The family of this 127-nucleotide RNA from Polypterus senegalus is "Small nucleolar RNA ACA64". The family's RNA type in Rfam is H/ACA-box small nucleolar RNA. Gene Ontology terms of the family: nucleolus and RNA processing. On this family, see Schattner et al., RNA 2006: "A computational screen for mammalian pseudouridylation guide H/ACA RNAs". Rfam 15.1 lists 9,537 matches to the family in 620 species.

Nucleotides: 127
Base pairs, nucleotide, nucleotide: 006051008049009048010046013043014042015041016040021035022034023033024032067120069118070117071116072115073114077108078107079106080105081104085099086098087097
Number, partner (000 for none) and nucleotide at each position: 001000a002000c003000a004000g005000c006051c007000u008049g009048a010046a011000a012000a013043u014042u015041g016040c017000c018000g019000c020000g021035g022034g023033c024032a025000u026000u027000g028000c029000c030000a031000u032024u033023g034022u035021c036000u037000a038000c039000g040016g041015u042014a043013a044000g045000a046010u047000a048009u049008c050000u051006g052000u053000g054000c055000c056000u057000a058000a059000a060000u061000u062000a063000c064000u065000a066000u067120g068000g069118c070117g071116c072115g073114u074000u075000u076000u077108u078107c079106a080105u081104u082000g083000c084000c085099c086098g087097u088000g089000u090000g091000c092000c093000c094000a095000u096000c097087a098086c099085g100000u101000g102000g103000c104081g105080a106079u107078g108077a109000a110000a111000c112000c113000c114073a115072u116071g117070c118069g119000c120067c121000u122000a123000c124000a125000c126000g127000c